Shown here is a 123-nucleotide sequence from Bos taurus, a member of the family "Small Cajal body specific RNA 15". The source organism's lineage runs through Eukaryota, Opisthokonta, Bilateria, Tetrapoda and Bos. A reference for the family is Darzacq et al. (2002), "Cajal body-specific small nuclear RNAs: a novel class of 2'-O-methylation and pseudouridylation guide RNAs", EMBO J.
RNA sequence: CUGCUAAGAAAAUAGAGUCCUUGAAGUCAAGCUGACUCUGCUUUUAGCCUCCUGAAUGAAAAGGUAGAUAGAACAGGUCUUGUUUGCAAAAUGAAUUCAUGACCUACAUAUCUACCAACAGCA
Numbered sequence: 001c002u003g004c005u006a007a008g009a010a011a012a013u014a015g016a017g018u019c020c021u022u023g024a025a026g027u028c029a030a031g032c033u034g035a036c037u038c039u040g041c042u043u044u045u046a047g048c049c050u051c052c053u054g055a056a057u058g059a060a061a062a063g064g065u066a067g068a069u070a071g072a073a074c075a076g077g078u079c080u081u082g083u084u085u086g087c088a089a090a091a092u093g094a095a096u097u098c099a100u101g102a103c104c105u106a107c108a109u110a111u112c113u114a115c116c117a118a119c120a121g122c123a
Stems, first nucleotide, its partner, number of pairs: 003048005013040007020031004063116008075105005081099002
It is one of the family's seed sequences.
The base pairs follow the family's consensus structure, which was predicted with RNAfold.
scaRNAs are a specific class of small nuclear RNAs which localise to the Cajal bodies and guide the modification of RNA polymerase II transcribed spliceosomal RNAs U1, U2, U4, U5 and U12. ACA45 belongs to the H/ACA box class of guide RNAs as it has the predicted hairpin-hinge-hairpin-tail structure, the conserved H/ACA-box motifs and is found associated with GAR1. ACA45 is predicted to guide the pseudouridylation of residue U37 of the U2 spliceosomal snRNA.
It is annotated as a small Cajal body RNA.
The family has 22 seed sequences and 635 matches in Rfam 15.1.